RNA sequence: CUCGGUCAAGGGCACACCCGUCGAAAGACGGGGCCGCAAAGCCACCGGGUUAAAUCCUCCAGCGAGGACAGACCAGCGGGGCUGCCGAU
Number, nucleotide and partner (000 for none) at each position: 001c000002u000003c000004g000005g000006u000007c000008a000009a000010g000011g000012g037013c036014a000015c000016a000017c032018c031019c030020g029021u028022c027023g000024a000025a000026a000027g022028a021029c020030g019031g018032g017033g000034c000035c000036g013037c012038a000039a000040a083041g082042c081043c080044a000045c079046c078047g077048g074049g073050u072051u000052a000053a000054a000055u068056c067057c066058u065059c000060c000061a000062g000063c000064g000065a058066g057067g056068a055069c000070a000071g000072a050073c049074c048075a000076g000077c047078g046079g045080g043081g042082c041083u040084g000085c000086c000087g000088a000089u000
A member of the RNA family "c-di-GMP-I riboswitch aptamer" from Azoarcus sp. KH32C, 89 nucleotides long. It scores 76 bits against the family's covariance model. Taxonomically the source falls in Azoarcus (Bacteria, Pseudomonadati, Pseudomonadota, Zoogloeaceae).